[Rfam]
RNA sequence: ACGUUCCUUCAGGGCAGGGUGAGAUUCCCGACCGGCGGUGUUGAGAUCAUAUGAUGUCUAAGUCCGCGAGUCGUUGUUAACGACAGGAUCUGGUGUGAUUCCAGAGCCGACAGUACAGUCUGGAUGGGAGAAGGAUGAU
Numbered sequence: 001a002c003g004u005u006c007c008u009u010c011a012g013g014g015c016a017g018g019g020u021g022a023g024a025u026u027c028c029c030g031a032c033c034g035g036c037g038g039u040g041u042u043g044a045g046a047u048c049a050u051a052u053g054a055u056g057u058c059u060a061a062g063u064c065c066g067c068g069a070g071u072c073g074u075u076g077u078u079a080a081c082g083a084c085a086g087g088a089u090c091u092g093g094u095g096u097g098a099u100u101c102c103a104g105a106g107c108c109g110a111c112a113g114u115a116c117a118g119u120c121u122g123g124a125u126g127g128g129a130g131a132a133g134g135a136u137g138a139u
Stems, first nucleotide, its partner, number of pairs: 005135006017029003031119002033109002035067004062107002070084003089105005111122003
A member of the RNA family "FMN riboswitch aptamer (RFN element)" from Pullulanibacillus camelliae, 139 nucleotides long. Lineage of the source: Bacteria > Bacillota > Bacilli > Sporolactobacillaceae > Pullulanibacillus.